[Rfam]
RNA sequence: CGAGUAGACCAUGUGGCGGCGCACACAGCCCGAAAGAGCGUGUGUGAGGAAAGUCCGAGCUCCGCAGGGCAGGGAUAGCUGCUAACGGCAGCCGAAGGCGACUUUAGGGAAAGUGCAACAGAAAGAAACCGCCCCGGCCUUAUGGCAUGUGGGUAAGGAUGGAAAGGCGAGGUAAGAGCUCACCAGCGCACAGGAGACUGUGCGGCUAUGUAAACCCUAUCCGGAGCAACACCGCAAUGGGGGCAGAUACGGCUUGCCCGGCCGGCUCCCGACAAGGUGGCUGGAGCUGUGCGGCGACGCGCGGCCAAGAUAGAUCGUCACUCAAUACAGAACUCGGCUUAUGGUUUAGUCGCCUA
Numbered sequence: 001c002g003a004g005u006a007g008a009c010c011a012u013g014u015g016g017c018g019g020c021g022c023a024c025a026c027a028g029c030c031c032g033a034a035a036g037a038g039c040g041u042g043u044g045u046g047a048g049g050a051a052a053g054u055c056c057g058a059g060c061u062c063c064g065c066a067g068g069g070c071a072g073g074g075a076u077a078g079c080u081g082c083u084a085a086c087g088g089c090a091g092c093c094g095a096a097g098g099c100g101a102c103u104u105u106a107g108g109g110a111a112a113g114u115g116c117a118a119c120a121g122a123a124a125g126a127a128a129c130c131g132c133c134c135c136g137g138c139c140u141u142a143u144g145g146c147a148u149g150u151g152g153g154u155a156a157g158g159a160u161g162g163a164a165a166g167g168c169g170a171g172g173u174a175a176g177a178g179c180u181c182a183c184c185a186g187c188g189c190a191c192a193g194g195a196g197a198c199u200g201u202g203c204g205g206c207u208a209u210g211u212a213a214a215c216c217c218u219a220u221c222c223g224g225a226g227c228a229a230c231a232c233c234g235c236a237a238u239g240g241g242g243g244c245a246g247a248u249a250c251g252g253c254u255u256g257c258c259c260g261g262c263c264g265g266c267u268c269c270c271g272a273c274a275a276g277g278u279g280g281c282u283g284g285a286g287c288u289g290u291g292c293g294g295c296g297a298c299g300c301g302c303g304g305c306c307a308a309g310a311u312a313g314a315u316c317g318u319c320a321c322u323c324a325a326u327a328c329a330g331a332a333c334u335c336g337g338c339u340u341a342u343g344g345u346u347u348a349g350u351c352g353c354c355u356a
Stems, first nucleotide, its partner, number of pairs: 001352003005348007013321006020046007051340003055337005060226004067259004073222005078092005093107001094105004108217002113215002115211003129158002131154004137146003166184002169181003186206001187204007230279004239270006250264005286305008